[Rfam]
RNA sequence: CGGCUGUAGCCAUAUUUGAACAGAAGUUUUACUGGCCGGUUGUUGUUCUCUUGUCGACAUAUCUGCUUACCGAACUUCUUACAUUC
Numbered sequence: 001c002g003g004c005u006g007u008a009g010c011c012a013u014a015u016u017u018g019a020a021c022a023g024a025a026g027u028u029u030u031a032c033u034g035g036c037c038g039g040u041u042g043u044u045g046u047u048c049u050c051u052u053g054u055c056g057a058c059a060u061a062u063c064u065g066c067u068u069a070c071c072g073a074a075c076u077u078c079u080u081a082c083a084u085u086c
Base pairs, nucleotide, nucleotide: 022079023078024077025076026075027074028073034067035066036065038063039062040061042058043057044056045055
Shown here is an 86-nucleotide RNA from Dorcoceras hygrometricum, a member of the family "Small nucleolar RNA snoR109".
NCBI's taxonomy places the organism under Eukaryota, Embryophyta, Spermatophyta, Pentapetalae, Dorcoceras.
It scores 74 bits against the family's covariance model.
The literature on the family includes a 2002 paper in Curr Biol by Marker et al., "Experimental RNomics: identification of 140 candidates for small non-messenger RNAs in the plant Arabidopsis thaliana".
Rfam links the family to the GO terms nucleolus and RNA processing.